[Rfam]
A member of the RNA family "HDV ribozyme from F. prausnitzii" from Rodentolepis nana, 72 nucleotides long.
The literature on the family includes a 2009 paper in Science by Webb et al., "Widespread occurrence of self-cleaving ribozymes".
The family has 48 seed sequences and 3,803 matches in Rfam 15.1.
Taxonomically the source falls in Rodentolepis (Eukaryota, Eumetazoa, Protostomia, Spiralia).
The family's consensus secondary structure is taken from published work.
RNA sequence: GGGGUGCGAGAUAGACUUACCUUCUCGUGGUGCACCCUGGGCAACGUAUAGUCAUACGGCAAAAAAGUCUUU
Number, nucleotide and partner (000 for none) at each position: 001g038002g037003g036004g035005u034006g033007c032008g000009a000010g000011a000012u000013a000014g000015a000016c000017u000018u000019a031020c030021c029022u000023u000024c000025u000026c000027g000028u000029g021030g020031u019032g007033c006034a005035c004036c003037c002038u001039g000040g000041g000042c000043a000044a000045c058046g057047u056048a055049u054050a000051g000052u000053c000054a049055u048056a047057c046058g045059g000060c000061a000062a000063a000064a000065a000066a000067g000068u000069c000070u000071u000072u000